The family of this 128-nucleotide RNA from Bursaphelenchus okinawaensis is "Nematode snoRNA ceN39". Lineage of the source: Eukaryota > Bilateria > Ecdysozoa > Tylenchina > Bursaphelenchus. For this family Rfam cites "Systematic identification of non-coding RNA 2,2,7-trimethylguanosine cap structures in Caenorhabditis elegans" (Jia et al., BMC Mol Biol, 2007).
RNA sequence: CUGGCGGAUAGGAACCAGGUAAUGUAGUAUACUUUAUCUGGGCCGAUACCCCGCCAAAAGCAUUCGACGUAUGACGGUCGCAUUUUAAUUUUUGUAAUUUAAAUGCAAUUUUAAUCAGCGUGACAUUU
Numbered sequence: 001c002u003g004g005c006g007g008a009u010a011g012g013a014a015c016c017a018g019g020u021a022a023u024g025u026a027g028u029a030u031a032c033u034u035u036a037u038c039u040g041g042g043c044c045g046a047u048a049c050c051c052c053g054c055c056a057a058a059a060g061c062a063u064u065c066g067a068c069g070u071a072u073g074a075c076g077g078u079c080g081c082a083u084u085u086u087a088a089u090u091u092u093u094g095u096a097a098u099u100u101a102a103a104u105g106c107a108a109u110u111u112u113a114a115u116c117a118g119c120g121u122g123a124c125a126u127u128u
Stems, first nucleotide, its partner, number of pairs: 003055005011044002015041008024032002067121004071112001076111002080106002083103003087099001090097002